The family of this 94-nucleotide RNA from Catagonus wagneri is "mir-4667 microRNA precursor family". The base pairs follow the family's consensus structure, which was predicted with RNAalifold.
RNA sequence: GGAGGUUGAGGUCCUGGUCGGGGCUCAGAAGGAGAACUCAAGGAAGGCUGACUGGGAGGCCUCUCCUCUCUGUCCCCACAGGACUUUGGCCUGG
Numbered sequence: 001g002g003a004g005g006u007u008g009a010g011g012u013c014c015u016g017g018u019c020g021g022g023g024c025u026c027a028g029a030a031g032g033a034g035a036a037c038u039c040a041a042g043g044a045a046g047g048c049u050g051a052c053u054g055g056g057a058g059g060c061c062u063c064u065c066c067u068c069u070c071u072g073u074c075c076c077c078a079c080a081g082g083a084c085u086u087u088g089g090c091c092u093g094g
Base pairs, nucleotide, nucleotide: 003092004091005090006089007088008087009086010085011084012083013082014081015080016079020077021076022075023074026072027071028070029069030067031066032065033064034063037058038056039055041053042052